A member of the RNA family "RT-17 RNA", 90 nucleotides long. The sequence is in the family's curated seed alignment. The family's consensus secondary structure is taken from published work. By type it is a small RNA.

[Rfam]
RNA sequence: UACCGUGCCACUUGGCAAAACAUCAAAAUGCAUGGGCUGUAUUAGUAGACCGUCACCUGACGGGUCGAAAGUUCGGUUCAGUGCAUACAG
Numbered sequence: 001u002a003c004c005g006u007g008c009c010a011c012u013u014g015g016c017a018a019a020a021c022a023u024c025a026a027a028a029u030g031c032a033u034g035g036g037c038u039g040u041a042u043u044a045g046u047a048g049a050c051c052g053u054c055a056c057c058u059g060a061c062g063g064g065u066c067g068a069a070a071g072u073u074c075g076g077u078u079c080a081g082u083g084c085a086u087a088c089a090g
Base pairs, nucleotide, nucleotide: 006017007016008015009014041072042071048066051062052061053060054059